[Rfam]
RNA sequence: UAAAAUAUGCAAGGGAGCUUUUAGAAAAGCUGAGAGGAAAGCUAUGCGCUUUCGACCUUACCUGAUUUGGAUAAUGCCAACGUAGGGAUGCACAAGCGGUUUUUGC
Numbered sequence: 001u002a003a004a005a006u007a008u009g010c011a012a013g014g015g016a017g018c019u020u021u022u023a024g025a026a027a028a029g030c031u032g033a034g035a036g037g038a039a040a041g042c043u044a045u046g047c048g049c050u051u052u053c054g055a056c057c058u059u060a061c062c063u064g065a066u067u068u069g070g071a072u073a074a075u076g077c078c079a080a081c082g083u084a085g086g087g088a089u090g091c092a093c094a095a096g097c098g099g100u101u102u103u104u105g106c
Stems, first nucleotide, its partner, number of pairs: 006094001008092003011059004017030005037053005061086004067080004
Dot-bracket structure: .....(.(((((((..(((((....)))))......(((((.......)))))..)))).((((..((((......))))..))))...))).)............
RNA: TPP riboswitch aptamer (THI element)
Organism: Butyricicoccus pullicaecorum